Overview:
MIR2606 microRNA precursor family: a 164-nucleotide RNA sequence from Medicago truncatula. It scores 144 bits against the family's covariance model.
[Rfam]
Nucleotides: 164
Stems, first nucleotide, its partner, number of pairs: 002163007010156004015151003019147001021145002024142002028138016045121006
Number, partner (000 for none) and nucleotide at each position: 001000a002163a003162a004161a005160u006159u007158u008157a009000g010156g011155u012154a013153c014000a015151a016150u017149u018000a019147u020000g021145u022144a023000a024142g025141u026000a027000c028138u029137u030136u031135u032134u033133g034132u035131a036130u037129g038128g039127u040126u041125c042124u043123u044000a045121a046120c047119u048118a049117a050116a051000a052000a053000u054000a055000c056000a057000u058000c059000u060000u061000u062000u063000u064000u065000u066000g067000g068000a069000u070000a071000u072000a073000a074000c075000a076000a077000a078000c079000u080000u081000u082000g083000a084000g085000a086000a087000a088000a089000u090000u091000a092000c093000g094000a095000a096000u097000u098000u099000a100000a101000g102000a103000a104000a105000a106000u107000c108000a109000u110000u111000a112000u113000g114000a115000a116050u117049u118048u119047a120046g121045u122000u123043a124042a125041g126040a127039a128038c129037c130036a131035u132034a133033c134032a135031a136030a137029a138028a139000a140000c141025a142024c143000a144022u145021a146000a147019g148000a149017a150016a151015u152000u153013g154012u155011a156010c157008u158007a159006a160005g161004u162003u163002u164000u